RNA sequence: UGUCUCUCUUUCACUUUGCUCAAAUGGACUGAUGUCUUUAUUGGUCAUUCAAGUGGGGCAAAGGAAAUGUUCUUCUUAAAACUCAGGCAGAUGAAGUGUUUGCUCACGUAACCUGUCAGAUUGAAGUAGAU
Number, nucleotide and partner (000 for none) at each position: 001u000002g000003u000004c000005u000006c000007u000008c000009u000010u000011u000012c000013a000014c000015u000016u000017u000018g000019c000020u000021c000022a000023a000024a000025u000026g000027g000028a000029c000030u000031g000032a000033u060034g059035u058036c057037u056038u000039u000040a000041u052042u051043g050044g049045u000046c000047a000048u000049u044050c043051a042052a041053g000054u000055g000056g037057g036058g035059c034060a033061a000062a000063g000064g000065a000066a000067a000068u000069g000070u124071u123072c000073u000074u120075c119076u118077u000078a000079a000080a000081a000082c000083u000084c108085a000086g105087g104088c102089a101090g100091a099092u098093g000094a000095a000096g000097u000098g092099u091100u090101u089102g088103c000104u087105c086106a000107c000108g084109u000110a000111a000112c000113c000114u000115g000116u000117c000118a076119g075120a074121u000122u000123g071124a070125a000126g000127u000128a000129g000130a000131u000